The record is a 375-nucleotide sequence from Actinomadura sp. KC345, which matches "transfer-messenger RNA" in Rfam. The literature on the family includes a 2002 paper in Nucleic Acids Res by Laslett et al., "BRUCE: a program for the detection of transfer-messenger RNA genes in nucleotide sequences". Gene Ontology term of the family: RNA catabolic process. About the family: Bacterial tmRNA, also known as 10Sa RNA or SsrA, is named for its dual tRNA and mRNA-like properties.
[Rfam]
RNA sequence: GGGGGUGACCGGCUUCGACUUCGGUCGUUCGAGCCAGGGGAAGCGGGUCGAGGGUUGCUGUUGUGACCUCGUUAAUCCUGUGACAGCAAACCAACAACUGCCAAGAAGAAUUCGCAGUCCGAGUUCGCCCUCGCCGCCUGAGCGAGUAGCGACUCUGUCAGCCUAGGAGCGUCUCCGUCCUGGGGUCUGGCAUCGUAAGGAGACUCCACCUGCAAGCCCGGUCGCGGGGCUUGUAGGAACACCCAACAGCGACUGAGCCCGUCGGCGACACGCCUGCGUGAGCGCCGGGGCUGAGAAAACGCCAAGCAGGCUGCACCCGGAGAAGCCCUGGCCCUUCACCGAAGGACGCGGGUUCGAUUCCCGCCACCUCCACGU
Dot-bracket structure: (((((((...........(((((((.(...(.(((((((....((((([[[[[..(((((((....]]]]]..........)))))))..........................................((((.((........)).))))...(((((((((((((..[[[[[[.)))))))..))))))......]]]]]]....(((((((((..[[[[[[...)))))))))...........]]]]]].(((((..(((...(..[[[[...[[.)..))))))))..........]]...]]]]...)))))......))))))).).).)))))))...(((((.......))))))))))))....